[Rfam]
RNA sequence: CCCCGGUCCAUCCCCCCCGAGGCCGGGUAAUGAAGGCCCGCGCUCACCCCCCCCCGAGGCGCGGGCCUUCCCUU
Numbered sequence: 001c002c003c004c005g006g007u008c009c010a011u012c013c014c015c016c017c018c019g020a021g022g023c024c025g026g027g028u029a030a031u032g033a034a035g036g037c038c039c040g041c042g043c044u045c046a047c048c049c050c051c052c053c054c055c056g057a058g059g060c061g062c063g064g065g066c067c068u069u070c071c072c073u074u
Base pairs, nucleotide, nucleotide: 002027003026004025005024006023007022008021032070033069034068035067036066037065038064039063040062041061042060043059044058

The family of this 74-nucleotide sequence from Corynebacterium canis is "6C RNA". It is annotated as a cis-regulatory element. Rfam links the family to the GO term sporulation.